[Rfam]
RNA sequence: UACGUUCAUCCUUAUGGGACGGAAGUAGGGGAUUAUCCCCGAAGGAACGCAUA
Dot-bracket structure: ..(((((.((((...))))..[.....(((((...)))))....)))))]...
Numbered sequence: 001u002a003c004g005u006u007c008a009u010c011c012u013u014a015u016g017g018g019a020c021g022g023a024a025g026u027a028g029g030g031g032a033u034u035a036u037c038c039c040c041g042a043a044g045g046a047a048c049g050c051a052u053a
Stems, first nucleotide, its partner, number of pairs: 003049005009019004022050001028040005
Rfam assigns this 53-nucleotide RNA sequence to the family "Glutamine riboswitch aptamer (glnA leader)". The sequence is in the family's curated seed alignment. A reference for the family is Ren et al. (2015), "Structural and Dynamic Basis for Low-Affinity, High-Selectivity Binding of L-Glutamine by the Glutamine Riboswitch", Cell Rep. Rfam links the family to the GO term glutamine binding.